[Rfam]
RNA sequence: GGGGAUGAUCGGUUUCGACAUCGCCUGUGAAACUGCGAGAAGCGGGCCGAGGAUGCAGGGUUAUCUCGUUAACGAUCUCUGCAAACCAUAGGUGCCAACGUUAAGCGCACCGACGUCGCUCUCGCUGCCUAAGCAGAGUUGAACGUCCGUCAGACCGGACUCGCCCUCGAUCCGGCUCCUGGCGUCAUCUAGAGGGCUUGCUGCGCGGCUGAGUUCCAGGGUCGCGCGGGACUUUCACUGGGGCUGGGCUCGUCGACCUAGGUGUUCGUGACAAAGGUCGGAGCCGAGUAGAACGUUCUCACGGACUGCGCCCGGAGAAGGCGCAGGAUCUCAGCGAUGGACGGGGGUUCAAUUCCCCCCAUCUCCACCA
Numbered sequence: 001g002g003g004g005a006u007g008a009u010c011g012g013u014u015u016c017g018a019c020a021u022c023g024c025c026u027g028u029g030a031a032a033c034u035g036c037g038a039g040a041a042g043c044g045g046g047c048c049g050a051g052g053a054u055g056c057a058g059g060g061u062u063a064u065c066u067c068g069u070u071a072a073c074g075a076u077c078u079c080u081g082c083a084a085a086c087c088a089u090a091g092g093u094g095c096c097a098a099c100g101u102u103a104a105g106c107g108c109a110c111c112g113a114c115g116u117c118g119c120u121c122u123c124g125c126u127g128c129c130u131a132a133g134c135a136g137a138g139u140u141g142a143a144c145g146u147c148c149g150u151c152a153g154a155c156c157g158g159a160c161u162c163g164c165c166c167u168c169g170a171u172c173c174g175g176c177u178c179c180u181g182g183c184g185u186c187a188u189c190u191a192g193a194g195g196g197c198u199u200g201c202u203g204c205g206c207g208g209c210u211g212a213g214u215u216c217c218a219g220g221g222u223c224g225c226g227c228g229g230g231a232c233u234u235u236c237a238c239u240g241g242g243g244c245u246g247g248g249c250u251c252g253u254c255g256a257c258c259u260a261g262g263u264g265u266u267c268g269u270g271a272c273a274a275a276g277g278u279c280g281g282a283g284c285c286g287a288g289u290a291g292a293a294c295g296u297u298c299u300c301a302c303g304g305a306c307u308g309c310g311c312c313c314g315g316a317g318a319a320g321g322c323g324c325a326g327g328a329u330c331u332c333a334g335c336g337a338u339g340g341a342c343g344g345g346g347g348u349u350c351a352a353u354u355c356c357c358c359c360c361a362u363c364u365c366c367a368c369c370a
Stems, first nucleotide, its partner, number of pairs: 001366007019339006027331001033326005043314005048068005054083007120141001123138001125136004148184006155175005163197006201229009212245006247285005254280003259273001264306004268300001270298001343359005
transfer-messenger RNA: a 370-nucleotide sequence from Protaetiibacter sp. SSC-01.
The literature on the family includes a 1996 paper in RNA by Williams and Bartel, "Phylogenetic analysis of tmRNA secondary structure".
The family is grouped with related families in Rfam's "tRNA clan".
Bacterial tmRNA, also known as 10Sa RNA or SsrA, is named for its dual tRNA and mRNA-like properties.